[Rfam]
The record is a 79-nucleotide sequence, which matches "skipping-rope RNA" in Rfam. The sequence is in the family's curated seed alignment. It is annotated as a small RNA.
RNA sequence: GUUAUUCAAGGAUAGAACAGGCUGCUAUCACGCCCUCGUGGUCUUAAAGAGAUGUCGGAUUGCCACCCGACUGGAUAAC
Numbered sequence: 001g002u003u004a005u006u007c008a009a010g011g012a013u014a015g016a017a018c019a020g021g022c023u024g025c026u027a028u029c030a031c032g033c034c035c036u037c038g039u040g041g042u043c044u045u046a047a048a049g050a051g052a053u054g055u056c057g058g059a060u061u062g063c064c065a066c067c068c069g070a071c072u073g074g075a076u077a078a079c
Stems, first nucleotide, its partner, number of pairs: 001079008011029005020064003031049001032043001034041002054071005